[Rfam]
RNA sequence: UGCAGGGCAUUUCCUGAGGAUUAAUGACUGUCUGGGGUCAUCAUCUCCUCCCAGUUAGUUAUUAAUCCCCAGGAAAUACUCUGUG
Numbered sequence: 001u002g003c004a005g006g007g008c009a010u011u012u013c014c015u016g017a018g019g020a021u022u023a024a025u026g027a028c029u030g031u032c033u034g035g036g037g038u039c040a041u042c043a044u045c046u047c048c049u050c051c052c053a054g055u056u057a058g059u060u061a062u063u064a065a066u067c068c069c070c071a072g073g074a075a076a077u078a079c080u081c082u083g084u085g
Stems, first nucleotide, its partner, number of pairs: 002084006009077008018068013032054006
RNA: mir-1641 microRNA precursor family